[Rfam]
This 70-nucleotide sequence from Apostasia shenzhenica belongs to the Rfam family "Plastid-clpP 5UTR RNA". NCBI's taxonomy places the organism under Eukaryota, Viridiplantae, Tracheophyta, Orchidaceae, Apostasia. The family's RNA type in Rfam is cis-regulatory element. Plastid clpP is a non-coding RNA (ncRNA) recognised in plastids. It was found in the prime untranslated region (5UTR) of a protease complex subunit (clpP) in plastids, suggesting a posible cis-regulatory function. Pairs were carried over by alignment from the consensus structure, which was predicted with LocARNA.

RNA sequence: AUUUAUAUUUUAAAAAACAAAGGGAAACAGAUCUUAUUCUAUACCUGAUAAAUACCAAUACACAAUGGGA
Numbered sequence: 001a002u003u004u005a006u007a008u009u010u011u012a013a014a015a016a017a018c019a020a021a022g023g024g025a026a027a028c029a030g031a032u033c034u035u036a037u038u039c040u041a042u043a044c045c046u047g048a049u050a051a052a053u054a055c056c057a058a059u060a061c062a063c064a065a066u067g068g069g070a
Base pairs, nucleotide, nucleotide: 003022004021006019008017009016010015044069045068046067053060054059